Overview
The family of this 106-nucleotide RNA from Gracilibacillus thailandensis is "SAM riboswitch aptamer (S box leader)". It scores 106 bits against the family's covariance model.
RNA sequence: UUCUUAUCCAGAGAGGUGGAGGGACUGGCCCUACGAUACCUCAGCAACCGUCAUUCAUUGACAAGGUGCUAAUUCCAGCAAGCAUGAUGUGCUUGAAAGAUGAGAG
Numbered sequence: 001u002u003c004u005u006a007u008c009c010a011g012a013g014a015g016g017u018g019g020a021g022g023g024a025c026u027g028g029c030c031c032u033a034c035g036a037u038a039c040c041u042c043a044g045c046a047a048c049c050g051u052c053a054u055u056c057a058u059u060g061a062c063a064a065g066g067u068g069c070u071a072a073u074u075c076c077a078g079c080a081a082g083c084a085u086g087a088u089g090u091g092c093u094u095g096a097a098a099g100a101u102g103a104g105a106g
Stems, first nucleotide, its partner, number of pairs: 001106008013042005021031003025078004043070004048066002050062004074098001079095006
Dot-bracket structure: ((((((((....(((((...(((.[[[[)))......)))))((((.((((((.....))))..))))))...(]]]]((((((.....))))))..)))))))))